Rfam assigns this 111-nucleotide sequence from Hippophae rhamnoides to the family "Plastid-psbA-1 3UTR RNA".
The literature on the family includes a 2023 paper in Plant Commun by Richter et al., "Retrograde signaling in plants: A critical review focusing on the GUN pathway and beyond".
Plastid psbA-1 is a non-coding RNA (ncRNA) present in plastids. It was identified in inverted repeat sequences in the 3 prime untranslate region (3UTR) of photosystem II quinone-binding protein (psbA).
Rfam classes the family as a cis-regulatory element.
RNA sequence: UAGAAGUUCCAUCUAUAAAUGGGUAGGACUUCGGUAUUAGUGUAUACCUUGUUUUGAAAAUAAGGGAGCAAUAAUAAACUUCUUGAUAGAUCAAGAAGUUUGGUAUUGCUC
Number, nucleotide and partner (000 for none) at each position: 001u000002a000003g000004a000005a000006g000007u000008u023009c022010c021011a020012u019013c000014u000015a000016u000017a000018a000019a012020u011021g010022g009023g008024u000025a000026g000027g000028a000029c000030u000031u000032c000033g000034g000035u000036a000037u000038u000039a000040g000041u000042g000043u000044a000045u000046a000047c000048c000049u000050u000051g000052u000053u000054u000055u000056g000057a000058a000059a000060a000061u000062a000063a000064g000065g000066g111067a110068g109069c108070a107071a106072u105073a104074a000075u000076a101077a100078a099079c000080u097081u096082c095083u094084u093085g000086a000087u000088a000089g000090a000091u000092c000093a084094a083095g082096a081097a080098g000099u078100u077101u076102g000103g000104u073105a072106u071107u070108g069109c068110u067111c066